[Rfam]
RNA sequence: UGCGGUCUGCGCUUCCCGACAGGAACCACAAUCCCUGGGGCCAUACUCGAUCCAAGGGAGCUGUCCCUGACCAGGCUCGUGGGCUUGGUCACACGGUGCCCACCUACGUUUGUAGGCACCCAGGAUCGUAAAUCUCCAUCGGUCGUCGUGGAUCGCAC
Numbered sequence: 001u002g003c004g005g006u007c008u009g010c011g012c013u014u015c016c017c018g019a020c021a022g023g024a025a026c027c028a029c030a031a032u033c034c035c036u037g038g039g040g041c042c043a044u045a046c047u048c049g050a051u052c053c054a055a056g057g058g059a060g061c062u063g064u065c066c067c068u069g070a071c072c073a074g075g076c077u078c079g080u081g082g083g084c085u086u087g088g089u090c091a092c093a094c095g096g097u098g099c100c101c102a103c104c105u106a107c108g109u110u111u112g113u114a115g116g117c118a119c120c121c122a123g124g125a126u127c128g129u130a131a132a133u134c135u136c137c138a139u140c141g142g143u144c145g146u147c148g149u150g151g152a153u154c155g156c157a158c
Stems, first nucleotide, its partner, number of pairs: 002156010012145001015142001017141003034124002037121003040117003056101003060097005069090007
The family of this 158-nucleotide RNA from Sinorhizobium sp. BG8 is "6S / SsrS RNA". Rfam classes the family as a non-coding RNA gene. The source organism's lineage runs through Bacteria, Pseudomonadati, Pseudomonadota, Hyphomicrobiales and Sinorhizobium. A search with the family's covariance model found it, with a score of 73 bits. E. coli 6S RNA was the first non coding RNA to be sequenced, but its function was unknown until recently. It consists of 184 nucleotides that fold into an extended hairpin structure with a large single-stranded internal bulge. The 6S RNA specifically associates with RNA polymerase holoenzyme containing the sigma70 specificity factor.